[Rfam]
Nucleotides: 128
Base pairs, nucleotide, nucleotide: 020058021057022056023055025037026036027035028034039050040049041048042047075104076103077102078101079100088099089098090097116127117126118125119124
Number, partner (000 for none) and nucleotide at each position: 001000u002000g003000c004000g005000a006000u007000g008000a009000g010000u011000c012000g013000a014000g015000a016000a017000u018000g019000g020058u021057c022056a023055c024000g025037c026036a027035a028034c029000u030000u031000u032000u033000a034028g035027u036026u037025g038000u039050c040049c041048g042047c043000g044000c045000a046000a047042g048041c049040g050039g051000c052000u053000c054000g055023g056022u057021g058020a059000c060000a061000u062000u063000u064000u065000u066000a067000g068000a069000u070000a071000a072000c073000g074000g075104g076103a077102c078101a079100c080000a081000u082000u083000u084000u085000a086000a087000g088099c089098a090097c091000g092000g093000a094000u095000u096000u097090g098089u099088g100079g101078u102077g103076u104075c105000u106000g107000a108000c109000u110000u111000c112000a113000g114000c115000g116127g117126a118125u119124u120000g121000u122000g123000g124119a125118g126117u127116c128000c